This 76-nucleotide sequence from Cynoglossus semilaevis belongs to the Rfam family "mir-208 microRNA precursor family". A reference for the family is Lagos-Quintana et al. (2003), "New microRNAs from mouse and human", RNA. The base pairs follow the family's consensus structure, which was predicted with RNAalifold. A search with the family's covariance model found it, with a score of 70 bits.

RNA sequence: UCUAGCAGGUCAGCUUUUUGUUUGUGUUAUGUUUCUUCUAAGAUAUAAGACGAACAAAAAGUUUGUCUGUUAAACG
Numbered sequence: 001u002c003u004a005g006c007a008g009g010u011c012a013g014c015u016u017u018u019u020g021u022u023u024g025u026g027u028u029a030u031g032u033u034u035c036u037u038c039u040a041a042g043a044u045a046u047a048a049g050a051c052g053a054a055c056a057a058a059a060a061g062u063u064u065g066u067c068u069g070u071u072a073a074a075c076g
Base pairs, nucleotide, nucleotide: 003072004071005070006069008067009066012063013062014061015060016059017058018057020055023052024051027048028047029046030045031044032043
NCBI's taxonomy places the organism under Eukaryota, Deuterostomia, Osteoglossocephalai, Cynoglossidae, Cynoglossus.